[Rfam]
RNA sequence: UCAAGCCAGUGAUGAUAAAGUUAUCCCUGUCUGAAUUUAAGUGAUGAGUCAUGGUAACCUGAGGCUUGA
Numbered sequence: 001u002c003a004a005g006c007c008a009g010u011g012a013u014g015a016u017a018a019a020g021u022u023a024u025c026c027c028u029g030u031c032u033g034a035a036u037u038u039a040a041g042u043g044a045u046g047a048g049u050c051a052u053g054g055u056a057a058c059c060u061g062a063g064g065c066u067u068g069a
Stems, first nucleotide, its partner, number of pairs: 001069007
Small nucleolar RNA R38: a 69-nucleotide sequence from Liparis tanakae. It scores 64 bits against the family's covariance model. From the family's description: snoR38 is a C/D box small nucleolar RNA conserved across yeast, human, Arabidopsis and rice. It is encoded in the intron of elongation factor-1 gamma in both pombe and cerevisiae. snoR38 guides the methylation of 2'-O-ribose sites in 28S rRNA.